[Rfam]
RNA sequence: ACAAAAGAGGCAGGGAGUACAAAUUCCUGUCAUUUUCGCGGUCAAGUCUUGGGAGGAUCAGAUCUUUGGCGCGCGCAGACGCUGCCACCGGCAACGGAUAAAGAUCACGCGAUACUUUAAAAACAGGGCUUUCAGCCUUGUUUUUUUUU
Numbered sequence: 001a002c003a004a005a006a007g008a009g010g011c012a013g014g015g016a017g018u019a020c021a022a023a024u025u026c027c028u029g030u031c032a033u034u035u036u037c038g039c040g041g042u043c044a045a046g047u048c049u050u051g052g053g054a055g056g057a058u059c060a061g062a063u064c065u066u067u068g069g070c071g072c073g074c075g076c077a078g079a080c081g082c083u084g085c086c087a088c089c090g091g092c093a094a095c096g097g098a099u100a101a102a103g104a105u106c107a108c109g110c111g112a113u114a115c116u117u118u119a120a121a122a123a124c125a126g127g128g129c130u131u132u133c134a135g136c137c138u139u140g141u142u143u144u145u146u147u148u149u
Stems, first nucleotide, its partner, number of pairs: 003149004011029006037111004046058004061106005068086003071082003088097003122142008
A member of the RNA family "Alphaproteobacterial sRNA ar9" from Sinorhizobium sp. BG8, 149 nucleotides long. The base pairs follow the family's consensus structure. The source organism's lineage runs through Bacteria, Pseudomonadati, Hyphomicrobiales, Rhizobiaceae and Sinorhizobium. A search with the family's covariance model found it, with a score of 135 bits.